A member of the RNA family "Clostridiales-1 RNA" from Catenibacillus scindens, 163 nucleotides long. NCBI's taxonomy places the organism under Bacteria, Bacillati, Bacillota, Lachnospirales, Catenibacillus.
[Rfam]
RNA sequence: UGAGACAAGCGACAAAAGGUCAUGCGGGCUGCGCUUGCGCAGGCAAGCAUGGCUUUGUGGCGCGCAAAACACCGAAAAGCAGUCAUUUUUCGCAGAAAAAUGAGCGAAUUUGAGGUGUUUUUAGGAUUGGGGGAGUACGAAGUACGGAGCAAUCCGUGUCUCA
Numbered sequence: 001u002g003a004g005a006c007a008a009g010c011g012a013c014a015a016a017a018g019g020u021c022a023u024g025c026g027g028g029c030u031g032c033g034c035u036u037g038c039g040c041a042g043g044c045a046a047g048c049a050u051g052g053c054u055u056u057g058u059g060g061c062g063c064g065c066a067a068a069a070c071a072c073c074g075a076a077a078a079g080c081a082g083u084c085a086u087u088u089u090u091c092g093c094a095g096a097a098a099a100a101u102g103a104g105c106g107a108a109u110u111u112g113a114g115g116u117g118u119u120u121u122u123a124g125g126a127u128u129g130g131g132g133g134a135g136u137a138c139g140a141a142g143u144a145c146g147g148a149g150c151a152a153u154c155c156g157u158g159u160c161u162c163a
Stems, first nucleotide, its partner, number of pairs: 001163007010062002013059001016056010028044001029042005066121008076111003083103009124155006135145004
It scores 108 bits against the family's covariance model. The family has 194 seed sequences and 1,172 matches in Rfam 15.1.